[Rfam]
RNA: Bacillaceae-1 RNA
Organism: Lysinibacillus sp. 2017
RNA sequence: GUAAAAAGAUCGAAUGCAAAAAAACGUCACAUCCUUGUGACAACGCAUUCAUGACCAACAUAGUGCUGG
Dot-bracket structure: ...........((((((........(((((......)))))...))))))....(((.(.....).)))
Numbered sequence: 001g002u003a004a005a006a007a008g009a010u011c012g013a014a015u016g017c018a019a020a021a022a023a024a025c026g027u028c029a030c031a032u033c034c035u036u037g038u039g040a041c042a043a044c045g046c047a048u049u050c051a052u053g054a055c056c057a058a059c060a061u062a063g064u065g066c067u068g069g
Stems, first nucleotide, its partner, number of pairs: 012050006026041005055069003059065001